Rfam assigns this 81-nucleotide RNA sequence from Oryctolagus cuniculus to the family "Small nucleolar RNA SNORD121A".
For this family Rfam cites "snoSeeker: an advanced computational package for screening of guide and orphan snoRNA genes in the human genome" (Yang et al., Nucleic Acids Res, 2006).
The base pairs follow the family's consensus structure, which was predicted with WAR.
Rfam links the family to the GO terms RNA processing and nucleolus.
It is annotated as a C/D-box small nucleolar RNA.
The sequence is in the family's curated seed alignment.

RNA sequence: GUCCAGAAGACAAUGAUGUGAUAAACUCCAAGCACAUAUCUGAUGAUUCCAUGUGGAAUGUAACUACUGAGAUUUCUGGAU
Numbered sequence: 001g002u003c004c005a006g007a008a009g010a011c012a013a014u015g016a017u018g019u020g021a022u023a024a025a026c027u028c029c030a031a032g033c034a035c036a037u038a039u040c041u042g043a044u045g046a047u048u049c050c051a052u053g054u055g056g057a058a059u060g061u062a063a064c065u066a067c068u069g070a071g072a073u074u075u076c077u078g079g080a081u
Stems, first nucleotide, its partner, number of pairs: 001081006008074002011071001